[Rfam]
RNA: tRNA
Organism: Frigoriglobus tundricola
RNA sequence: GUGGCUGUAGCUCAGUUGGUUAGAGCGCCAGAUUGUGGAUCUGGAUGUCGCGGGUUCAAAUCCCGUCAGUCACC
Numbered sequence: 001g002u003g004g005c006u007g008u009a010g011c012u013c014a015g016u017u018g019g020u021u022a023g024a025g026c027g028c029c030a031g032a033u034u035g036u037g038g039a040u041c042u043g044g045a046u047g048u049c050g051c052g053g054g055u056u057c058a059a060a061u062c063c064c065g066u067c068a069g070u071c072a073c074c
Stems, first nucleotide, its partner, number of pairs: 001073007010026004028044005050066005